[Rfam]
RNA sequence: GAGAGAGGGAGGGCAGUUUCCGGGCCUUCUGGUCUGAGGAAAGUCUCCCCACCUUCCGAACACGCGAAUACCUGUAAAGGGUAUCGGGCGAGAGCCCGGGCAGCCGGGAAACCGGCUCUUGCGGUAUUACCGCAUGAUGGCACAGAAACGAUACCGGCCUGCGUUAAAGCAAUGAUAUGGAAAAUUGAGGUCGCGCAGGGUACGGAUGGAACGGCGAAUCCUCGCGGGUGCAAGUCGAAAUGGGAUCAAUGGUGUUGUUCGGACAACCCCCGUUUGGUGUGACGCUUAGCCGAAUACUGCCAAUGCAUCUUUGCAUCAACAGAAGGGAGCUUACUCCCCUCACUC
Numbered sequence: 001g002a003g004a005g006a007g008g009g010a011g012g013g014c015a016g017u018u019u020c021c022g023g024g025c026c027u028u029c030u031g032g033u034c035u036g037a038g039g040a041a042a043g044u045c046u047c048c049c050c051a052c053c054u055u056c057c058g059a060a061c062a063c064g065c066g067a068a069u070a071c072c073u074g075u076a077a078a079g080g081g082u083a084u085c086g087g088g089c090g091a092g093a094g095c096c097c098g099g100g101c102a103g104c105c106g107g108g109a110a111a112c113c114g115g116c117u118c119u120u121g122c123g124g125u126a127u128u129a130c131c132g133c134a135u136g137a138u139g140g141c142a143c144a145g146a147a148a149c150g151a152u153a154c155c156g157g158c159c160u161g162c163g164u165u166a167a168a169g170c171a172a173u174g175a176u177a178u179g180g181a182a183a184a185u186u187g188a189g190g191u192c193g194c195g196c197a198g199g200g201u202a203c204g205g206a207u208g209g210a211a212c213g214g215c216g217a218a219u220c221c222u223c224g225c226g227g228g229u230g231c232a233a234g235u236c237g238a239a240a241u242g243g244g245a246u247c248a249a250u251g252g253u254g255u256u257g258u259u260c261g262g263a264c265a266a267c268c269c270c271c272g273u274u275u276g277g278u279g280u281g282a283c284g285c286u287u288a289g290c291c292g293a294a295u296a297c298u299g300c301c302a303a304u305g306c307a308u309c310u311u312u313g314c315a316u317c318a319a320c321a322g323a324a325g326g327g328a329g330c331u332u333a334c335u336c337c338c339c340u341c342a343c344u345c
Stems, first nucleotide, its partner, number of pairs: 001345003005341005010335002012301006021036005041332003045329005050230004059256001063226005068084005085132003138217001140215002154205003158199007177185002234283004243271002
RNA: Archaeal RNase P
Organism: Methanohalophilus mahii